[Rfam]
RNA sequence: GUUGGUGCGAUGAUUGUAAAAAAAAGUAUUUGUUCUGAAUGCCAUCGCCAUGGCAUGAUAGACGCUUUAACACCCAUAGAAUAUGAGCACCA
Numbered sequence: 001g002u003u004g005g006u007g008c009g010a011u012g013a014u015u016g017u018a019a020a021a022a023a024a025a026g027u028a029u030u031u032g033u034u035c036u037g038a039a040u041g042c043c044a045u046c047g048c049c050a051u052g053g054c055a056u057g058a059u060a061g062a063c064g065c066u067u068u069a070a071c072a073c074c075c076a077u078a079g080a081a082u083a084u085g086a087g088c089a090c091c092a
Base pairs, nucleotide, nucleotide: 003092004091006089007088
Shown here is a 92-nucleotide RNA from Protea cynaroides, a member of the family "Small nucleolar RNA snoR8a". A reference for the family is Brown et al. (2001), "Multiple snoRNA gene clusters from Arabidopsis", RNA. NCBI's taxonomy places the organism under Eukaryota, Tracheophyta, Spermatophyta, Proteales, Protea. Gene Ontology terms of the family: RNA processing and nucleolus.